[Rfam]
RNA sequence: AGACCUUGGAAAUCAAGUGUAGGUGGAGCCUGUGGGUGUGAUUUCGAGGCGACCCAUACUUGGUUUCCAGGGUCU
Numbered sequence: 001a002g003a004c005c006u007u008g009g010a011a012a013u014c015a016a017g018u019g020u021a022g023g024u025g026g027a028g029c030c031u032g033u034g035g036g037u038g039u040g041a042u043u044u045c046g047a048g049g050c051g052a053c054c055c056a057u058a059c060u061u062g063g064u065u066u067c068c069a070g071g072g073u074c075u
Stems, first nucleotide, its partner, number of pairs: 002074006009067006016060002022054003028050004